The record is a 513-nucleotide part of an RNA from Dictyostelium purpureum, which matches "Eukaryotic large subunit ribosomal RNA" in Rfam. The source organism's lineage runs through Eukaryota, Amoebozoa, Eumycetozoa, Dictyosteliaceae and Dictyostelium. Rfam's curators put it in the seed alignment.
RNA sequence: CCUUCCGAAGUUUCCCUCAGGAUAGCUGGAGCAGUAUUCUAGUUUCAUCUUGUAAAGACAAUGAUUAGCAGUUUCGGGGGCGUAAUGCCCUCAGCUGAUUCUCAAACUCUGAACAGGUGAGUCAUAUUAAUUCUCUUUAUUGGAUUUUGGUAUUAAAUGAUGCAUGCAUCAUGAACAAUAGAAGCUCUUAGUGGGCCAUUUUUGGUAAGCAGAACUGGCGAUGUGGGUUGAACCAAAUAUUGGGAUAAGACGUCUAAUAUUCACUAAUAGAUACCACAAAAGGUGUUAGUUCAUUAAGACAGCAGGACGGUGGCCAUGGAAGUCGGCAUCCGCUAAGGAGUGUGUAACAACUCACCUGCCAAAUGGACUAGCCCUGAAAAUGGAUGACGCUAGCAGUGGAUAGUCGAUGCCCAAUCGUUAAAAGAAGUGAUAAUACUUUUAACGUGUAGGAAGGCGUGAAGGUAACAUUGAAGAUUCAGUGUGAACUGGAUUGAAGUUGCCUUUAGUGCAGAU
Numbered sequence: 001c002c003u004u005c006c007g008a009a010g011u012u013u014c015c016c017u018c019a020g021g022a023u024a025g026c027u028g029g030a031g032c033a034g035u036a037u038u039c040u041a042g043u044u045u046c047a048u049c050u051u052g053u054a055a056a057g058a059c060a061a062u063g064a065u066u067a068g069c070a071g072u073u074u075c076g077g078g079g080g081c082g083u084a085a086u087g088c089c090c091u092c093a094g095c096u097g098a099u100u101c102u103c104a105a106a107c108u109c110u111g112a113a114c115a116g117g118u119g120a121g122u123c124a125u126a127u128u129a130a131u132u133c134u135c136u137u138u139a140u141u142g143g144a145u146u147u148u149g150g151u152a153u154u155a156a157a158u159g160a161u162g163c164a165u166g167c168a169u170c171a172u173g174a175a176c177a178a179u180a181g182a183a184g185c186u187c188u189u190a191g192u193g194g195g196c197c198a199u200u201u202u203u204g205g206u207a208a209g210c211a212g213a214a215c216u217g218g219c220g221a222u223g224u225g226g227g228u229u230g231a232a233c234c235a236a237a238u239a240u241u242g243g244g245a246u247a248a249g250a251c252g253u254c255u256a257a258u259a260u261u262c263a264c265u266a267a268u269a270g271a272u273a274c275c276a277c278a279a280a281a282g283g284u285g286u287u288a289g290u291u292c293a294u295u296a297a298g299a300c301a302g303c304a305g306g307a308c309g310g311u312g313g314c315c316a317u318g319g320a321a322g323u324c325g326g327c328a329u330c331c332g333c334u335a336a337g338g339a340g341u342g343u344g345u346a347a348c349a350a351c352u353c354a355c356c357u358g359c360c361a362a363a364u365g366g367a368c369u370a371g372c373c374c375u376g377a378a379a380a381u382g383g384a385u386g387a388c389g390c391u392a393g394c395a396g397u398g399g400a401u402a403g404u405c406g407a408u409g410c411c412c413a414a415u416c417g418u419u420a421a422a423a424g425a426a427g428u429g430a431u432a433a434u435a436c437u438u439u440u441a442a443c444g445u446g447u448a449g450g451a452a453g454g455c456g457u458g459a460a461g462g463u464a465a466c467a468u469u470g471a472a473g474a475u476u477c478a479g480u481g482u483g484a485a486c487u488g489g490a491u492u493g494a495a496g497u498u499g500c501c502u503u504u505a506g507u508g509c510a511g512a513u
Base pairs, nucleotide, nucleotide: 001454002453003452004451005450006449011024013022014021015020028188029187030186031185032184044121045120046119047118048117049116050115055110056108057107062104063103064102067099069097070096071095074094076092077091078090079089081087124172125171128168132164195219196218197217198216200214201213202212203211204210224235225234226233239415240414241413242412243411249405250404251403258402259401262398263397264396281375282374283373285372286371287370288369289368290367291366292365293364294363302359303358304357305356306355308332309331310330313327314326315325333337338353342351343350416444417443418442419441420440421439422438423437424436455508457505458504459503460502461501462500463499464498465497466496473492474491478487479486480485